[Rfam]
RNA sequence: GCAGCCAAAGCCAAACCUGUCGCGAGGCAGGGACGGAAAGCCACGGGUCUUGCACUGAUCAAGAUAGCCGGGUUGCCUGGU
Numbered sequence: 001g002c003a004g005c006c007a008a009a010g011c012c013a014a015a016c017c018u019g020u021c022g023c024g025a026g027g028c029a030g031g032g033a034c035g036g037a038a039a040g041c042c043a044c045g046g047g048u049c050u051u052g053c054a055c056u057g058a059u060c061a062a063g064a065u066a067g068c069c070g071g072g073u074u075g076c077c078u079g080g081u
Stems, first nucleotide, its partner, number of pairs: 001081001003078002011036002016031006034067001039074004044070003047065005
Shown here is an 81-nucleotide RNA sequence from Desulfoplanes formicivorans, a member of the family "c-di-GMP-I-GGC riboswitch aptamer". The source organism's lineage runs through Bacteria, Pseudomonadati, Desulfovibrionia, Desulfovibrionales and Desulfoplanes. It scores 71 bits against the family's covariance model.